[Rfam]
RNA: Small nucleolar RNA SNORD24
Organism: Candidula unifasciata
RNA sequence: GAGCAGUGAUGUUGAAAUAUUUGCUAUCUGAUUGAAUAUGAUGGAUACAAAUUCUACCACCUAGAUCUCUGAGCUU
Numbered sequence: 001g002a003g004c005a006g007u008g009a010u011g012u013u014g015a016a017a018u019a020u021u022u023g024c025u026a027u028c029u030g031a032u033u034g035a036a037u038a039u040g041a042u043g044g045a046u047a048c049a050a051a052u053u054c055u056a057c058c059a060c061c062u063a064g065a066u067c068u069c070u071g072a073g074c075u076u
Base pairs, nucleotide, nucleotide: 001076002075003074004073